A member of the RNA family "MIR397 microRNA precursor family" from Eucalyptus grandis, 119 nucleotides long. A search with the family's covariance model found it, with a score of 76 bits. Rfam links the family to the GO terms RISC complex and miRNA-mediated post-transcriptional gene silencing.

Nucleotides: 119
Base pairs, nucleotide, nucleotide: 006116007115008114009113010112011111013109014108015107016106017105018104019103020102021101022100023099024098025097026096027095028094030092031091032090033089034088
Number, partner (000 for none) and nucleotide at each position: 001000u002000g003000c004000a005000g006116a007115a008114a009113c010112a011111u012000c013109a014108u015107u016106g017105a018104g019103u020102g021101c022100a023099g024098c025097g026096u027095u028094g029000a030092u031091g032090a033089a034088a035000u036000c037000g038000c039000u040000c041000g042000g043000u044000u045000c046000c047000a048000c049000g050000u051000u052000u053000c054000c055000g056000g057000g058000g059000c060000a061000g062000u063000u064000c065000u066000u067000g068000c069000u070000a071000g072000g073000g074000c075000g076000g077000a078000a079000c080000g081000g082000g083000a084000u085000c086000g087000g088034u089033u090032u091031c092030g093000c094028c095027g096026g097025c098024g099023c100022u101021g102020c103019a104018c105017u106016c107015a108014a109013u110000u111011a112010u113009g114008u115007u116006u117000c118000u119000a